[Rfam]
RNA sequence: CACCGAUAAUAGCAAACUAUUGGAAACGAUAGGACGCAAAGCUAAUGGGCCUAAACACUAGAAUGGCAGCCAAGCUACCGAA
Numbered sequence: 001c002a003c004c005g006a007u008a009a010u011a012g013c014a015a016a017c018u019a020u021u022g023g024a025a026a027c028g029a030u031a032g033g034a035c036g037c038a039a040a041g042c043u044a045a046u047g048g049g050c051c052u053a054a055a056c057a058c059u060a061g062a063a064u065g066g067c068a069g070c071c072a073a074g075c076u077a078c079c080g081a082a
Stems, first nucleotide, its partner, number of pairs: 012037002017032006040076004046072003049067003056061001